[Rfam]
mir-146 microRNA precursor family: an 89-nucleotide RNA from Hucho hucho. Gene Ontology terms of the family: RISC complex and miRNA-mediated post-transcriptional gene silencing. A reference for the family is Lagos-Quintana et al. (2002), "Identification of tissue-specific microRNAs from mouse", Curr Biol. Taxonomically the source falls in Hucho (Eukaryota, Opisthokonta, Teleostomi, Protacanthopterygii).
RNA sequence: CUGAGUUCUUGACUUUGAGAACUGAAUUCCAAGGGUUGUAUUUCUGAAGUCAGCUCAUGGGGCUCAGUUCUUAAACUUGGAUGCUCCCU
Numbered sequence: 001c002u003g004a005g006u007u008c009u010u011g012a013c014u015u016u017g018a019g020a021a022c023u024g025a026a027u028u029c030c031a032a033g034g035g036u037u038g039u040a041u042u043u044c045u046g047a048a049g050u051c052a053g054c055u056c057a058u059g060g061g062g063c064u065c066a067g068u069u070c071u072u073a074a075a076c077u078u079g080g081a082u083g084c085u086c087c088c089u
Stems, first nucleotide, its partner, number of pairs: 008080002011077001018071008033056004